The family of this 508-nucleotide sequence from Streptomyces griseoviridis is "Saccharopolyspora sRNA 350". The base pairs follow the family's consensus structure, which was predicted with RNAfold.
RNA sequence: CGGGCGCCGUGCUCCCAGACGGCGUCGUCGGAGAGCAGGGCGGCCUCGCCGAAGUAGGCGCCGUCGGCGAGGACUCCGAGGACCGCCUCGUCACCGUAGGGGCCGGUACCGACCCGCUCCACCCGGCCGUGGGCGAGCAGGUAGACCUCGUCGGUCGGGGUGCCGUCCGAGACGAUCACGUCCCCGGGGGCGAACUCCCGCUGCCUGCACCGCUGGGCCAGUUCGGCGAGGACUUCCUCGUCGUCGUAGGAGCGCAGCGCGGGCAGCUCGCCCAGCUCCGCCGGGAUGACCUCGACCCGGUCGCCGGUCUUCACGAACGUGAUGCGGCCGUCCCCCACGGUGUAGGUGAGGCGCCGGUUCACCCGGUACGCGCCGCCCUGCACAUUCACCCACGGCAGCGUGCGCAGCAGCCAGCGCGAGCUGAUCUCCUGCAUCUGCGGCGCGGACUUGGUCGUGGUGGCCAGGUUCCGCGCGGCGGCAGUGCCGAGGCUCUGCUGCGGCUUGUCCU
Numbered sequence: 001c002g003g004g005c006g007c008c009g010u011g012c013u014c015c016c017a018g019a020c021g022g023c024g025u026c027g028u029c030g031g032a033g034a035g036c037a038g039g040g041c042g043g044c045c046u047c048g049c050c051g052a053a054g055u056a057g058g059c060g061c062c063g064u065c066g067g068c069g070a071g072g073a074c075u076c077c078g079a080g081g082a083c084c085g086c087c088u089c090g091u092c093a094c095c096g097u098a099g100g101g102g103c104c105g106g107u108a109c110c111g112a113c114c115c116g117c118u119c120c121a122c123c124c125g126g127c128c129g130u131g132g133g134c135g136a137g138c139a140g141g142u143a144g145a146c147c148u149c150g151u152c153g154g155u156c157g158g159g160g161u162g163c164c165g166u167c168c169g170a171g172a173c174g175a176u177c178a179c180g181u182c183c184c185c186g187g188g189g190g191c192g193a194a195c196u197c198c199c200g201c202u203g204c205c206u207g208c209a210c211c212g213c214u215g216g217g218c219c220a221g222u223u224c225g226g227c228g229a230g231g232a233c234u235u236c237c238u239c240g241u242c243g244u245c246g247u248a249g250g251a252g253c254g255c256a257g258c259g260c261g262g263g264c265a266g267c268u269c270g271c272c273c274a275g276c277u278c279c280g281c282c283g284g285g286a287u288g289a290c291c292u293c294g295a296c297c298c299g300g301u302c303g304c305c306g307g308u309c310u311u312c313a314c315g316a317a318c319g320u321g322a323u324g325c326g327g328c329c330g331u332c333c334c335c336c337a338c339g340g341u342g343u344a345g346g347u348g349a350g351g352c353g354c355c356g357g358u359u360c361a362c363c364c365g366g367u368a369c370g371c372g373c374c375g376c377c378c379u380g381c382a383c384a385u386u387c388a389c390c391c392a393c394g395g396c397a398g399c400g401u402g403c404g405c406a407g408c409a410g411c412c413a414g415c416g417c418g419a420g421c422u423g424a425u426c427u428c429c430u431g432c433a434u435c436u437g438c439g440g441c442g443c444g445g446a447c448u449u450g451g452u453c454g455u456g457g458u459g460g461c462c463a464g465g466u467u468c469c470g471c472g473c474g475g476c477g478g479c480a481g482u483g484c485c486g487a488g489g490c491u492c493u494g495c496u497g498c499g500g501c502u503u504g505u506c507c508u
Base pairs, nucleotide, nucleotide: 006390009387011385016380018328021325025322026321027320028316029315037311038310039309040308041307047303048302049300050299051298054233055232059228060227061226062225063224065111066110067109077102082097083096085094118221122217123216126213127212129210130209131206132205133204134203136202137201140198141197143196144195149192150191155188156187158185159184160183161178162177235295236294240290241289242288243287244286245285250282254278256277257276258275259271260270261269329342330341331340332339351379353377355375356374357373360372362370391431392430394428395427397425399423400422403418404417405416407415437476438475440473442471443470444469445468446467447465448464449463450462451461452460477507478506480502481501482500484499487496488495